[Rfam]
The family of this 567-nucleotide part of an RNA from Corallococcus coralloides is "Bacterial small subunit ribosomal RNA". For this family Rfam cites "Crystal structure of the ribosome at 5.5 A resolution" (Yusupov et al., Science, 2001).
RNA sequence: UUGUUUGAGAUCCUUGGCUCAGAACGAACGCUGGCGGCGUGCCUAACACAUGCAAGUCGAGCGCGAAUAGGGGCAACCCUUAGUAGAGCGGCGCACGGGUGCGUAACACGUGGAUAAUCUGCCUGGAUGCCUGGGAUAACCAGUCGAAAGAUUGGCUAAUACCGGAUAAGCCCACGGUUUCUUCGGAGACUGAGGGAAAAGGUGGCCUCUGUAUACAAGCUAUCACAACCAGAUGAGUCCGCGGCCCAUCAGCUAGUUGGCGGGGUAAUGGCCCACUAAGGCGACGACGGGUAGCUGGUCUGAGAGGACGAUCAGCCACACUGGAACUGAGACACGGUCCAGACUCCUACGGGAGGCAGCAGUGGGGAAUUUUGCGCAAUGGGCGAAAGCCUGACGCAGCAACGCCGCGUGUGUGAUGAAGGUCUUUGGAUUGUAAAGCUCUUUCGACCGGGACGAAACUCGUAAAGCAUAAUACGCUUUGCCUUGACGUACCGGGAGAAGAAGCACCGGCUAACUUGGCCAGCAGCCGCGGUAUACAGAGGGUGCAAGCGUUGUUCGGCAUUAUUG
Number, nucleotide and partner (000 for none) at each position: 001u000002u000003g000004u000005u000006u000007g020008a019009g018010a000011u016012c000013c000014u000015u000016g011017g000018c009019u008020c007021a000022g557023a556024a555025c554026g000027a553028a552029c551030g550031c549032u548033g000034g408035c407036g406037g405038c404039g403040u401041g400042c366043c000044u000045a000046a000047c364048a363049c362050a000051u361052g360053c359054a000055a000056g092057u091058c090059g000060a000061g089062c088063g000064c000065g084066a000067a000068u082069a081070g080071g079072g078073g077074c000075a000076a000077c073078c072079c071080u070081u069082a068083g000084u065085a000086g000087a000088g062089c061090g058091g057092c056093g000094c000095a000096c000097g000098g000099g319100u318101g317102c000103g000104u000105a000106a000107c000108a000109c243110g242111u241112g240113g239114a238115u237116a000117a000118u236119c235120u000121g000122c000123c232124u231125g230126g229127a000128u227129g226130c000131c165132u164133g163134g162135g000136a000137u000138a000139a000140c155141c154142a153143g152144u151145c150146g000147a000148a000149a000150g145151a144152u143153u142154g141155g140156c000157u000158a000159a000160u000161a000162c134163c133164g132165g131166a000167u000168a000169a000170g000171c196172c195173c194174a000175c192176g191177g190178u000179u188180u187181c186182u000183u000184c000185g000186g181187a180188g179189a000190c177191u176192g175193a000194g173195g172196g171197a000198a000199a000200a000201g224202g223203u222204g221205g220206c219207c000208u000209c000210u000211g000212u000213a000214u000215a000216c000217a000218a000219g206220c205221u204222a203223u202224c201225a000226c129227a128228a000229c126230c125231a124232g123233a000234u000235g119236a118237g115238u114239c113240c112241g111242c110243g109244g000245c291246c290247c289248a000249u000250c000251a000252g282253c281254u280255a000256g000257u279258u278259g277260g276261c000262g274263g273264g272265g000266u000267a000268a000269u000270g000271g000272c264273c263274c262275a000276c260277u259278a258279a257280g254281g253282c252283g000284a000285c000286g000287a000288c000289g247290g246291g245292u000293a000294g316295c315296u314297g313298g309299u308300c307301u306302g000303a000304g000305a000306g301307g300308a299309c298310g000311a000312u000313c297314a296315g295316c294317c101318a100319c099320a000321c342322u341323g340324g339325a338326a000327c000328u000329g000330a000331g000332a000333c000334a000335c000336g000337g000338u325339c324340c323341a322342g321343a000344c355345u354346c353347c352348u000349a000350c000351g000352g347353g346354a345355g344356g000357c000358a000359g053360c052361a051362g049363u048364g047365g000366g042367g000368a000369a000370u000371u000372u398373u000374g397375c396376g395377c000378a000379a000380u393381g392382g391383g390384c389385g000386a000387a000388a000389g384390c383391c382392u381393g380394a000395c376396g375397c374398a372399g000400c041401a040402a000403c039404g038405c037406c036407g035408c034409g000410u000411g441412u000413g439414u438415g000416a000417u000418g000419a000420a000421g432422g431423u430424c429425u000426u000427u000428g000429g424430a423431u422432u421433g000434u000435a000436a000437a000438g414439c413440u000441c411442u000443u000444u000445c501446g000447a000448c495449c494450g493451g492452g000453a000454c000455g488456a000457a000458a000459c000460u000461c000462g482463u481464a480465a479466a478467g477468c000469a000470u000471a000472a000473u000474a000475c000476g000477c467478u466479u465480u464481g463482c462483c000484u000485u000486g000487a000488c455489g000490u000491a000492c451493c450494g449495g448496g000497a000498g000499a000500a000501g445502a000503a000504g546505c545506a544507c543508c542509g000510g000511c000512u000513a000514a000515c541516u540517u539518g000519g537520c000521c000522a000523g530524c529525a000526g000527c000528c000529g524530c523531g000532g000533u000534a000535u000536a000537c519538a000539g517540a516541g515542g508543g507544u506545g505546c504547a000548a032549g031550c030551g029552u028553u027554g025555u024556u023557c022558g000559g000560c000561a000562u000563u000564a000565u000566u000567g000